[Rfam]
RNA sequence: CAUUGGGGACGACCCCUGUGGGGAUUUUAGGGACAUUGGGGACGACCCCG
Number, nucleotide and partner (000 for none) at each position: 001c020002a019003u018004u000005g016006g015007g014008g013009a000010c000011g000012a000013c008014c007015c006016c005017u000018g003019u002020g001021g000022g000023g000024a000025u000026u000027u000028u000029a000030g000031g000032g000033a000034c000035a000036u000037u050038g049039g048040g047041g046042a000043c000044g000045a000046c041047c040048c039049c038050g037
A member of the RNA family "Guanidine-II riboswitch aptamer (mini-ykkC)" from Cairina moschata, 50 nucleotides long. Simpler in structure and has fewer highly conserved nucleotide positions than the ykkC-yxkD leader. The source organism's lineage runs through Eukaryota, Chordata, Sarcopterygii, Neognathae and Cairina.